The record is a 70-nucleotide RNA sequence from Exophiala aquamarina, which matches "bZIP non canonical Hac1/Xbp1 intron" in Rfam. The family has 112 seed sequences and 1,325 matches in Rfam 15.1. The family's consensus secondary structure was predicted with RNAfold. Taxonomically the source falls in Exophiala aquamarina (Eukaryota, Opisthokonta, Pezizomycotina, leotiomyceta). bZIP intron RNA is a non-canonical intron that was first reported in HAC1 gene in yeast and XBP1 gene in Metazoa. The match comes from Rfam's covariance-model search (41 bits).

RNA sequence: CCCUGUCUCCGGUUUGACACAAUAUCCUGCCGUGGUAUUGUGUGACCUGCAGUGUCAACCGGACACAUGG
Numbered sequence: 001c002c003c004u005g006u007c008u009c010c011g012g013u014u015u016g017a018c019a020c021a022a023u024a025u026c027c028u029g030c031c032g033u034g035g036u037a038u039u040g041u042g043u044g045a046c047c048u049g050c051a052g053u054g055u056c057a058a059c060c061g062g063a064c065a066c067a068u069g070g
Stems, first nucleotide, its partner, number of pairs: 001070002004067003010061005021039006044056003